[Rfam]
RNA sequence: GCGUCAUUCAGAGUAGCGCUGAGGGAUCUGGCCCAGAGACGCGCUCGGCAACCUGGUUCACAGCCACCAAGGUGCCAAUGCCAGCCCGGUGACGGGGGCAAUGAGGC
Numbered sequence: 001g002c003g004u005c006a007u008u009c010a011g012a013g014u015a016g017c018g019c020u021g022a023g024g025g026a027u028c029u030g031g032c033c034c035a036g037a038g039a040c041g042c043g044c045u046c047g048g049c050a051a052c053c054u055g056g057u058u059c060a061c062a063g064c065c066a067c068c069a070a071g072g073u074g075c076c077a078a079u080g081c082c083a084g085c086c087c088g089g090u091g092a093c094g095g096g097g098g099c100a101a102u103g104a105g106g107c
Stems, first nucleotide, its partner, number of pairs: 001107002004104005013046001016044004023034003028084004047076004052072002054069004080099001085096004

The family of this 107-nucleotide sequence from Candidatus Nitrospira inopinata is "SAM riboswitch aptamer (S box leader)".
It scores 64 bits against the family's covariance model.
Taxonomically the source falls in Nitrospira (Bacteria, Pseudomonadati, Nitrospiria, Nitrospiraceae).